Nucleotides: 046
Base pairs, nucleotide, nucleotide: 003046004045005044007041008040009039010038015035016034017033018032019031020030022029023028
Number, partner (000 for none) and nucleotide at each position: 001000g002000g003046g004045g005044u006000u007041c008040c009039g010038g011000u012000u013000c014000a015035c016034g017033c018032c019031u020030u021000u022029c023028c024000a025000g026000c027000a028023g029022g030020a031019g032018g033017g034016c035015g036000a037000c038010c039009c040008g041007g042000c043000g044005g045004c046003c
The record is a 46-nucleotide RNA from Actinoplanes derwentensis, which matches "L31-Actinobacteria ribosomal protein leader" in Rfam. A search with the family's covariance model found it, with a score of 50 bits. Taxonomically the source falls in Actinoplanes (Bacteria, Bacillati, Actinomycetota, Actinomycetes).